[Rfam]
RNA sequence: GCAGCAACGCCGUUUGUUGCUGGCGCAUUCGCAGUUGCGAGUGAGUUAACUGAUAGAAGGAUGAUAUCGAUG
Dot-bracket structure: .((((((((.....))))))))...((((((......)))))).............................
Numbered sequence: 001g002c003a004g005c006a007a008c009g010c011c012g013u014u015u016g017u018u019g020c021u022g023g024c025g026c027a028u029u030c031g032c033a034g035u036u037g038c039g040a041g042u043g044a045g046u047u048a049a050c051u052g053a054u055a056g057a058a059g060g061a062u063g064a065u066a067u068c069g070a071u072g
Stems, first nucleotide, its partner, number of pairs: 002022008026043006